[Rfam]
Rfam assigns this 68-nucleotide sequence from Synaphobranchus kaupii to the family "mir-139 microRNA precursor family".
Gene Ontology terms of the family: miRNA-mediated post-transcriptional gene silencing and RISC complex.
The literature on the family includes a 2008 paper in Genome Res by Murchison et al., "Conservation of small RNA pathways in platypus".
Rfam 15.1 lists 598 matches to the family in 559 species.
The organism belongs to Synaphobranchus, within Eukaryota.
It scores 77 bits against the family's covariance model.
RNA sequence: CUGUAUUCUACAGUGCAUGUGUCUCCAGUGUUAAUAUGCUACUGGAGACAUGUCUCUGUUGGAAUAAC
Numbered sequence: 001c002u003g004u005a006u007u008c009u010a011c012a013g014u015g016c017a018u019g020u021g022u023c024u025c026c027a028g029u030g031u032u033a034a035u036a037u038g039c040u041a042c043u044g045g046a047g048a049c050a051u052g053u054c055u056c057u058g059u060u061g062g063a064a065u066a067a068c
Base pairs, nucleotide, nucleotide: 006064007063008062009061010059011058012057013056015054018052019051020050021049022048023047024046025045026044027043028042029041